[Rfam]
Rfam assigns this 69-nucleotide RNA sequence from Coregonus sp. 'balchen' to the family "miR-430 microRNA precursor family".
RNA sequence: AAAGUUACCUUAAAUGGAAGCAUACAUUUUUUGCUGGAUGAAUAAGUGCUUCUCUUUGGGGUAGCCUUA
Numbered sequence: 001a002a003a004g005u006u007a008c009c010u011u012a013a014a015u016g017g018a019a020g021c022a023u024a025c026a027u028u029u030u031u032u033g034c035u036g037g038a039u040g041a042a043u044a045a046g047u048g049c050u051u052c053u054c055u056u057u058g059g060g061g062u063a064g065c066c067u068u069a
Base pairs, nucleotide, nucleotide: 004065005064006063007062008061009060010059011058014056016053017052018051019050020049021048022047023046026043027042028041
Source information:
The base pairs follow the family's consensus structure, which was predicted with RNAalifold. A search with the family's covariance model found it, with a score of 51 bits.